Shown here is a 144-nucleotide sequence from Treponema ruminis, a member of the family "FMN riboswitch aptamer (RFN element)". The RFN element is a highly conserved domain that is found frequently in the 5'-untranslated regions of prokaryotic mRNAs that encode for flavin mononucleotide (FMN) biosynthesis and transport proteins. This element is a metabolite-dependent riboswitch that directly binds FMN in the absence of proteins. In Bacillus subtilis, the riboswitch most likely controls gene expression by causing premature transcription termination within the 5' untranslated region of the ribDEAHT operon and precluding access to the ribosome-binding site of ypaA mRNA.The FMN riboswitch structure, reported in present an FMN-bound six-stem junction, adopts a butterfly-like scaffold, stapled together by opposingly directed but nearly identically folded peripheral domains. The source organism's lineage runs through Bacteria, Spirochaetia, Treponematales, Treponemataceae and Treponema.
[Rfam]
RNA sequence: GACUAACUUCAGGGCGGGGUGAGAUUCCCCACCGGCUGUAAGCGCAUUGCGUAAGCCAGCGAGCUGUUUUCAGCAUGAUACGGUGCAAAUCCGUAGCCGACGGUAAGUGGCAGGUCCACAAAGUCCGGAUGAAAGAAGUAAAAC
Numbered sequence: 001g002a003c004u005a006a007c008u009u010c011a012g013g014g015c016g017g018g019g020u021g022a023g024a025u026u027c028c029c030c031a032c033c034g035g036c037u038g039u040a041a042g043c044g045c046a047u048u049g050c051g052u053a054a055g056c057c058a059g060c061g062a063g064c065u066g067u068u069u070u071c072a073g074c075a076u077g078a079u080a081c082g083g084u085g086c087a088a089a090u091c092c093g094u095a096g097c098c099g100a101c102g103g104u105a106a107g108u109g110g111c112a113g114g115u116c117c118a119c120a121a122a123g124u125c126c127g128g129a130u131g132a133a134a135g136a137a138g139u140a141a142a143a144c
Stems, first nucleotide, its partner, number of pairs: 004141001006139005017029003033099002035060004055097002065073001079095005101127003